[Rfam]
RNA sequence: UAUUUGUUGUUGGCAAGAUUACGGCGAAGCUGAAUCAAAUUUAAAAUGUUUCAGCUUCACUUUAUUUUGCCAAUAAAGGUAGC
Numbered sequence: 001u002a003u004u005u006g007u008u009g010u011u012g013g014c015a016a017g018a019u020u021a022c023g024g025c026g027a028a029g030c031u032g033a034a035u036c037a038a039a040u041u042u043a044a045a046a047u048g049u050u051u052c053a054g055c056u057u058c059a060c061u062u063u064a065u066u067u068u069g070c071c072a073a074u075a076a077a078g079g080u081a082g083c
Base pairs, nucleotide, nucleotide: 001081002080003079004078005077007076008075009074010073011072012071013070014069015068018065019064021062023061024060026058027057028056029055030054031053032052033051034050
Background: Rfam assigns this 83-nucleotide RNA from Schistosoma japonicum to the family "mir-31_2 microRNA precursor family". The sequence is in the family's curated seed alignment. NCBI's taxonomy places the organism under Eukaryota, Bilateria, Lophotrochozoa, Neodermata, Schistosoma.